The family of this 79-nucleotide RNA sequence from Astyanax mexicanus is "mir-30 microRNA precursor family".
On this family, see Lagos-Quintana et al., Science 2001: "Identification of novel genes coding for small expressed RNAs".
Gene Ontology terms of the family: RISC complex and gene silencing by miRNA.
Rfam's curators write: This family consists of the mammalian microRNA (miRNA) precursor mir-30a. Animal miRNAs are transcribed as ~70nt precursors and subsequently processed by the Dicer enzyme to give a ~22nt product.
Lineage of the source: Eukaryota > Gnathostomata > Actinopteri > Characiphysae > Astyanax.
RNA sequence: UUCGUGACUGUAAACAUCCCCGACUGGAAGCUGUGUGAGAACUCUGUCGAGCUUUCAGUUGGAUGUUUGCUGCUGCUGA
Dot-bracket structure: .(.(((.(.((((((((((...((((((((((.................)))))))))).)))))))))).).))).).